[Rfam]
RNA sequence: GAGGGUAGGCCCCUCGAAGUCUGGCUACAGGGCUCGGCUUCAAACCACCACGAGCUGCUAUGGUCAAAAGCCAUGGUGGUGAGCGUCGCUGGAAAAGGCACUGAACGUGUCAGGU
Dot-bracket structure: (((((.....)))))((((((.((((....)))).))))))....(.((.(((((.(((.((((.....)))).))).)).....)))..))....(((((.....)))))..).
Numbered sequence: 001g002a003g004g005g006u007a008g009g010c011c012c013c014u015c016g017a018a019g020u021c022u023g024g025c026u027a028c029a030g031g032g033c034u035c036g037g038c039u040u041c042a043a044a045c046c047a048c049c050a051c052g053a054g055c056u057g058c059u060a061u062g063g064u065c066a067a068a069a070g071c072c073a074u075g076g077u078g079g080u081g082a083g084c085g086u087c088g089c090u091g092g093a094a095a096a097g098g099c100a101c102u103g104a105a106c107g108u109g110u111c112a113g114g115u
Stems, first nucleotide, its partner, number of pairs: 001015005016041006023034004046114001048092002051088003054080002057077003061073004097111005